The record is a 67-nucleotide sequence, which matches "DUF3800-VIII RNA" in Rfam. It is annotated as a small RNA. About the family: Bacteroidetes, Cyanobacteria, Firmicutes, Planctomycetes (1 example), Proteobacteria, Tenericutes (1 example).
[Rfam]
RNA sequence: GGAGCCCUGCGGUGGCCGAAGCCUUUAGUUCCACUAAAGGUCCGUAUGUAGGCCACUGCGGGGCUUA
Numbered sequence: 001g002g003a004g005c006c007c008u009g010c011g012g013u014g015g016c017c018g019a020a021g022c023c024u025u026u027a028g029u030u031c032c033a034c035u036a037a038a039g040g041u042c043c044g045u046a047u048g049u050a051g052g053c054c055a056c057u058g059c060g061g062g063g064c065u066u067a
Stems, first nucleotide, its partner, number of pairs: 002066012015053003021041009